[Rfam]
RNA sequence: AAAAAGGGCUUCUGCCGUGCGUGGCACGGGGGGGCUUUCAGACACCCCCGCGGAAUCGACAUCAAGAGAUUUCGGAAGCACAAUUUUUGUGAUGAAGGGUUGCUGGUAACCGCUUGUUCUGGCACCCUG
Numbered sequence: 001a002a003a004a005a006g007g008g009c010u011u012c013u014g015c016c017g018u019g020c021g022u023g024g025c026a027c028g029g030g031g032g033g034g035c036u037u038u039c040a041g042a043c044a045c046c047c048c049c050g051c052g053g054a055a056u057c058g059a060c061a062u063c064a065a066g067a068g069a070u071u072u073c074g075g076a077a078g079c080a081c082a083a084u085u086u087u088u089g090u091g092a093u094g095a096a097g098g099g100u101u102g103c104u105g106g107u108a109a110c111c112g113c114u115u116g117u118u119c120u121g122g123c124a125c126c127c128u129g
Stems, first nucleotide, its partner, number of pairs: 008079005013026005027050006034043001036041001051074007097127004102123005108118003